RNA: Mammalian CPEB3 ribozyme
Organism: Crocodylus porosus
RNA sequence: UGAGGUUACAAGUUUGAGGCCAUAGUAGAAUUACUUAUGGCACGGCCCUGUCAGACUCUAACAAAUCUGUGAAUUCUGUU
Numbered sequence: 001u002g003a004g005g006u007u008a009c010a011a012g013u014u015u016g017a018g019g020c021c022a023u024a025g026u027a028g029a030a031u032u033a034c035u036u037a038u039g040g041c042a043c044g045g046c047c048c049u050g051u052c053a054g055a056c057u058c059u060a061a062c063a064a065a066u067c068u069g070u071g072a073a074u075u076c077u078g079u080u
Stems, first nucleotide, its partner, number of pairs: 016048001018047004024080007032042001052069004057064001